[Rfam]
RNA sequence: ACAACAUUCGGAUCGUCGGCCUACCGAGAAAUAUCCCACGCUCGGUGGAAGAUCUUCCCUCAGUCGU
Numbered sequence: 001a002c003a004a005c006a007u008u009c010g011g012a013u014c015g016u017c018g019g020c021c022u023a024c025c026g027a028g029a030a031a032u033a034u035c036c037c038a039c040g041c042u043c044g045g046u047g048g049a050a051g052a053u054c055u056u057c058c059c060u061c062a063g064u065c066g067u
Stems, first nucleotide, its partner, number of pairs: 004064002010058003015053003021048008
A member of the RNA family "mir-2774 microRNA precursor family" from Bombyx mori, 67 nucleotides long.
It scores 73 bits against the family's covariance model.